Shown here is a 90-nucleotide RNA sequence from Peromyscus maniculatus, a member of the family "Small nucleolar RNA snR60/Z15/Z230/Z193/J17". A search with the family's covariance model found it, with a score of 50 bits. NCBI's taxonomy places the organism under Eukaryota, Chordata, Craniata, Gnathostomata, Peromyscus maniculatus.
RNA sequence: UGGAUACUAUGAUGAAAUCCUAGUUCAGCAGAUGAAUAGUUCAGCUCUGAUGAACAAUCUGAAGUCUUUCACUCCCAUCUGAUGUAUCUG
Numbered sequence: 001u002g003g004a005u006a007c008u009a010u011g012a013u014g015a016a017a018u019c020c021u022a023g024u025u026c027a028g029c030a031g032a033u034g035a036a037u038a039g040u041u042c043a044g045c046u047c048u049g050a051u052g053a054a055c056a057a058u059c060u061g062a063a064g065u066c067u068u069u070c071a072c073u074c075c076c077a078u079c080u081g082a083u084g085u086a087u088c089u090g
Stems, first nucleotide, its partner, number of pairs: 004087004
Rfam classes the family as a C/D-box small nucleolar RNA.
Clan: SNORD77 clan.